[Rfam]
RNA sequence: AUAACCGAGAGGGUAGAAGUACAAUCUGCUCUCCUGCGCGGUCAAAGUCUUGGGAGGAUGCGAUCUAGGCGCGAUUUUCGCUGCCGCCGGACAACGGAAAACAGAUCGGACGCGUUUAAUUGCAAGGCCUCGUGCCUUGCAUUUUUUU
Number, nucleotide and partner (000 for none) at each position: 001a000002u000003a148004a147005c000006c000007g000008a000009g000010a000011g030012g029013g000014u000015a000016g025017a000018a000019g000020u000021a000022c000023a000024a000025u016026c000027u000028g000029c012030u011031c000032u000033c000034c000035u000036g000037c114038g113039c112040g111041g000042u000043c000044a000045a000046a000047g059048u058049c057050u056051u000052g000053g000054g000055a000056g050057g049058a048059u047060g000061c000062g107063a106064u105065c104066u103067a000068g085069g084070c083071g081072c080073g079074a000075u000076u000077u000078u000079c073080g072081c071082u000083g070084c069085c068086g000087c097088c096089g095090g000091a000092c000093a000094a000095c089096g088097g087098a000099a000100a000101a000102c000103a066104g065105a064106u063107c062108g000109g000110a000111c040112g039113c038114g037115u000116u000117u000118a000119a000120u000121u141122g140123c139124a138125a137126g136127g135128c134129c000130u000131c000132g000133u000134g128135c127136c126137u125138u124139g123140c122141a121142u000143u000144u000145u000146u000147u004148u003

The family of this 148-nucleotide RNA sequence from Mesorhizobium sp. Root554 is "Alphaproteobacterial sRNA ar9". A reference for the family is del Val et al. (2012), "A survey of sRNA families in alpha-proteobacteria", RNA Biol.